[Rfam]
The record is a 73-nucleotide RNA from Nannospalax galili, which matches "mir-3473 microRNA precursor family" in Rfam.

RNA sequence: ACCGCUGAGCCAUCCCUCCAGCCCCCAUUUUUUUUUUAAAUGAAUUUCGGGGCUGGAGAGAUGGCUCAGCGGU
Dot-bracket structure: .(((((((((((((.(((((((((.........................))))))))).))))))))))))).